[Rfam]
RNA sequence: AAGCCUGAAGAGAGAGGCAGGGUCUAAUCCGCAGCCUCCGUGGCAGCUGUUGAUCAGCCAUUGUCUCUCUCUUUCUCUUCU
Number, nucleotide and partner (000 for none) at each position: 001a000002a000003g000004c000005c000006u000007g000008a073009a072010g071011a070012g069013a068014g067015a066016g065017g064018c063019a062020g061021g000022g059023u000024c057025u056026a000027a054028u053029c052030c000031g000032c049033a048034g047035c046036c000037u000038c000039c000040g000041u000042g000043g000044c000045a000046g035047c034048u033049g032050u000051u000052g029053a028054u027055c000056a025057g024058c000059c022060a000061u020062u019063g018064u017065c016066u015067c014068u013069c012070u011071c010072u009073u008074u000075c000076u000077c000078u000079u000080c000081u000
RNA: mir-574 microRNA precursor family